[Rfam]
Lysine riboswitch aptamer: a 175-nucleotide RNA sequence from Blautia sp. OF03-15BH.
Rfam's curators write: Riboswitches are metabolite binding domains within certain messenger RNAs that serve as precision sensors for their corresponding targets. Allosteric rearrangement of mRNA structure is mediated by ligand binding, and this results in modulation of gene expression.
The base pairs follow the family's consensus structure, which is taken from published work.
The match comes from Rfam's covariance-model search (100 bits).
RNA sequence: UGGUUUGACAGAGGUUGCGUAUUUCAUCAGUAGUCUGCCGGAUGUGGCCCGCACAGAGGAAAGCAGGAGAAAGGGAAAGACGCCGAAAGUGAAGGAAUGGGUUUCCGGAUCUUGGGCAUGCAGUGAAAAACUGUAUGACUGUCAUCGUUGAUACGAUGGAGCGCUGAUCAGGACA
Numbered sequence: 001u002g003g004u005u006u007g008a009c010a011g012a013g014g015u016u017g018c019g020u021a022u023u024u025c026a027u028c029a030g031u032a033g034u035c036u037g038c039c040g041g042a043u044g045u046g047g048c049c050c051g052c053a054c055a056g057a058g059g060a061a062a063g064c065a066g067g068a069g070a071a072a073g074g075g076a077a078a079g080a081c082g083c084c085g086a087a088a089g090u091g092a093a094g095g096a097a098u099g100g101g102u103u104u105c106c107g108g109a110u111c112u113u114g115g116g117c118a119u120g121c122a123g124u125g126a127a128a129a130a131c132u133g134u135a136u137g138a139c140u141g142u143c144a145u146c147g148u149u150g151a152u153a154c155g156a157u158g159g160a161g162c163g164c165u166g167a168u169c170a171g172g173a174c175a
Stems, first nucleotide, its partner, number of pairs: 006170003009166003017083004022078004034067005087113003094106004114140002117137008142159007